A member of the RNA family "Mammalian CPEB3 ribozyme" from Crocodylus porosus, 77 nucleotides long.
[Rfam]
RNA sequence: UUUGCAAGUUUGAGGUCAUAAGCAGAAGUGCUCAUGGCACAGCCUUGUCAGAUUCCAAGAAAUCUGAAAAAUCUGCU
Numbered sequence: 001u002u003u004g005c006a007a008g009u010u011u012g013a014g015g016u017c018a019u020a021a022g023c024a025g026a027a028g029u030g031c032u033c034a035u036g037g038c039a040c041a042g043c044c045u046u047g048u049c050a051g052a053u054u055c056c057a058a059g060a061a062a063u064c065u066g067a068a069a070a071a072u073c074u075g076c077u
Base pairs, nucleotide, nucleotide: 013045014044015043017042021077022076023075024074025073026072028040029039030038049066050065051064052063053062054061